[Rfam]
RNA sequence: ACCAUACAGUCCGUUUUAGAAUCCUUACGCUUUACUGAUCAUCAAAAGUAAAACGGUAAAGCGUGGGAAUUCUAAAACGGACCAUAU
Number, nucleotide and partner (000 for none) at each position: 001a000002c000003c000004a000005u000006a000007c000008a000009g000010u081011c080012c079013g078014u077015u076016u075017u074018a073019g072020a071021a000022u069023c000024c067025u000026u000027a064028c063029g062030c061031u060032u059033u058034a000035c056036u055037g000038a000039u000040c000041a000042u000043c000044a000045a000046a000047a000048g000049u000050a000051a000052a000053a000054c000055g036056g035057u000058a033059a032060a031061g030062c029063g028064u027065g000066g000067g024068a000069a022070u000071u020072c019073u018074a017075a016076a015077a014078c013079g012080g011081a010082c000083c000084a000085u000086a000087u000
Notes: Rfam assigns this 87-nucleotide RNA from Diaphorina citri to the family "mir-927 microRNA precursor family". A search with the family's covariance model found it, with a score of 62 bits. A reference for the family is Berezikov et al. (2010), "Evolutionary flux of canonical microRNAs and mirtrons in Drosophila", Nat Genet. The base pairs follow the family's consensus structure, which was predicted with RNAalifold. The family has 16 seed sequences and 174 matches in Rfam 15.1. Taxonomically the source falls in Diaphorina (Eukaryota, Ecdysozoa, Pancrustacea, Eumetabola).